[Rfam]
RNA sequence: AUACUUACCCAAAAGGGGAAAUGCCUUUAUCACAAAGGUAGUUUUCCUAGGGUAAGGUGUGUUCAUUGAACUAUAGAUGUGUUGACUCCUGUGGUUUCCCCAAAUGUGGGAAACUUGAUGGCAUAAUUUGUGGUAGUAUGGGGCUGCGUUUGUACUUUUCUAUA
Numbered sequence: 001a002u003a004c005u006u007a008c009c010c011a012a013a014a015g016g017g018g019a020a021a022u023g024c025c026u027u028u029a030u031c032a033c034a035a036a037g038g039u040a041g042u043u044u045u046c047c048u049a050g051g052g053u054a055a056g057g058u059g060u061g062u063u064c065a066u067u068g069a070a071c072u073a074u075a076g077a078u079g080u081g082u083u084g085a086c087u088c089c090u091g092u093g094g095u096u097u098c099c100c101c102a103a104a105u106g107u108g109g110g111a112a113a114c115u116u117g118a119u120g121g122c123a124u125a126a127u128u129u130g131u132g133g134u135a136g137u138a139u140g141g142g143g144c145u146g147c148g149u150u151u152g153u154a155c156u157u158u159u160c161u162a163u164a
Stems, first nucleotide, its partner, number of pairs: 015119001016048006023042002027038001049090004056083003060079004092117003095113003099109002138163006146155001148153001